[Rfam]
RNA sequence: CAAUCGAAAAGGCACACCUAUUGAAAAAUAGGGUCGCAAAGCUAUAGGGGCUACAACACAUCGAAAUGAUGUUACGCCAGCCAGUUACCGAA
Numbered sequence: 001c002a003a004u005c006g007a008a009a010a011g012g013c014a015c016a017c018c019u020a021u022u023g024a025a026a027a028a029u030a031g032g033g034u035c036g037c038a039a040a041g042c043u044a045u046a047g048g049g050g051c052u053a054c055a056a057c058a059c060a061u062c063g064a065a066a067u068g069a070u071g072u073u074a075c076g077c078c079a080g081c082c083a084g085u086u087a088c089c090g091a092a
Stems, first nucleotide, its partner, number of pairs: 012037002017032006040086004047082002049078003056072003
Description: c-di-GMP-I riboswitch aptamer: a 92-nucleotide RNA sequence from Paenibacillus sp. PvR098. Pairs were carried over by alignment from the consensus structure, which is taken from published work. The family is grouped with related families in Rfam's "c-di-GMP_I riboswitch clan".